[Rfam]
RNA sequence: ACCUGUGGGCUUCCCUUUGUCAUCCUAUGCCUGGAGAUCACAGUGAGGCAGGGACAGCAAAGGGAUGCUCAG
Numbered sequence: 001a002c003c004u005g006u007g008g009g010c011u012u013c014c015c016u017u018u019g020u021c022a023u024c025c026u027a028u029g030c031c032u033g034g035a036g037a038u039c040a041c042a043g044u045g046a047g048g049c050a051g052g053g054a055c056a057g058c059a060a061a062g063g064g065a066u067g068c069u070c071a072g
Base pairs, nucleotide, nucleotide: 012065013064014063015062016061017060019058020057023054024053025052026051029049030048031047032046